Source information
Rfam assigns this 121-nucleotide RNA sequence from Erwinia tracheiphila to the family "EFASI RNA".
RNA sequence: UCGUUCUGAUAUUGAGGCGUCAGCAAAACGCUGAUGGGGUGUUUAAUUCGCCAGUACCGAGUACUGGUUGAUCACCUGUAAAAACUCAACAUGGCAUUACCCUGCUACACAAUAUCAAACG
Numbered sequence: 001u002c003g004u005u006c007u008g009a010u011a012u013u014g015a016g017g018c019g020u021c022a023g024c025a026a027a028a029c030g031c032u033g034a035u036g037g038g039g040u041g042u043u044u045a046a047u048u049c050g051c052c053a054g055u056a057c058c059g060a061g062u063a064c065u066g067g068u069u070g071a072u073c074a075c076c077u078g079u080a081a082a083a084a085c086u087c088a089a090c091a092u093g094g095c096a097u098u099a100c101c102c103u104g105c106u107a108c109a110c111a112a113u114a115u116c117a118a119a120c121g
Stems, first nucleotide, its partner, number of pairs: 002121004007117008018036006037077004048071003053065005
Rfam classes the family as a small RNA.